[Rfam]
The record is a 380-nucleotide RNA from Allosphingosinicella indica, which matches "Bacterial RNase P class A" in Rfam. The organism belongs to Allosphingosinicella, within Bacteria. From the family's description: Ribonuclease P (RNase P) is a ubiquitous endoribonuclease, found in archaea, bacteria and eukarya as well as chloroplasts and mitochondria.
RNA sequence: CCAGAGGGUCGGGCGGCCGCGGCUCGACAUAUGUCGGGGCGAGGAAAGUCCGGGCUCCACGGAAACACGGUGCCGGAUAACGUCCGGCGGCUUCGGGCUUCGUCCGGGGUCAGGGAAAGUGCCACAGAAAGCAGUCCGCCGCGUUUCGGCGCGGUCAGGUCGAAAGGGUGGGGUAAGAGCCCACCGCGCGCCCGGCAACGGGGGCGGCACGGCAAACCCCACCGGGAGCAAGACCGAAUAGGGGCGGCGCAUGGGCCUGGUUCCGGCCCGUCGCCCGGGUUGGUUGCUUGAGGGGCGGAGCAAUCCGUCUCCUAGAGGAAUGGCCGCCCAUCCCCGGAUGACGGGGUGGACAGAACCCGGCUUACAGACCCUCUGGCAUU
Numbered sequence: 001c002c003a004g005a006g007g008g009u010c011g012g013g014c015g016g017c018c019g020c021g022g023c024u025c026g027a028c029a030u031a032u033g034u035c036g037g038g039g040c041g042a043g044g045a046a047a048g049u050c051c052g053g054g055c056u057c058c059a060c061g062g063a064a065a066c067a068c069g070g071u072g073c074c075g076g077a078u079a080a081c082g083u084c085c086g087g088c089g090g091c092u093u094c095g096g097g098c099u100u101c102g103u104c105c106g107g108g109g110u111c112a113g114g115g116a117a118a119g120u121g122c123c124a125c126a127g128a129a130a131g132c133a134g135u136c137c138g139c140c141g142c143g144u145u146u147c148g149g150c151g152c153g154g155u156c157a158g159g160u161c162g163a164a165a166g167g168g169u170g171g172g173g174u175a176a177g178a179g180c181c182c183a184c185c186g187c188g189c190g191c192c193c194g195g196c197a198a199c200g201g202g203g204g205c206g207g208c209a210c211g212g213c214a215a216a217c218c219c220c221a222c223c224g225g226g227a228g229c230a231a232g233a234c235c236g237a238a239u240a241g242g243g244g245c246g247g248c249g250c251a252u253g254g255g256c257c258u259g260g261u262u263c264c265g266g267c268c269c270g271u272c273g274c275c276c277g278g279g280u281u282g283g284u285u286g287c288u289u290g291a292g293g294g295g296c297g298g299a300g301c302a303a304u305c306c307g308u309c310u311c312c313u314a315g316a317g318g319a320a321u322g323g324c325c326g327c328c329c330a331u332c333c334c335c336g337g338a339u340g341a342c343g344g345g346g347u348g349g350a351c352a353g354a355a356c357c358c359g360g361c362u363u364a365c366a367g368a369c370c371c372u373c374u375g376g377c378a379u380u
Stems, first nucleotide, its partner, number of pairs: 001376010011365001012328007020041002023038006046363003050360005055228004063262002066259001068224005073087005088113001089111010114219002119217002121213003136159002138155007167185006186208001187206003191202004232285004242276006253269005292311008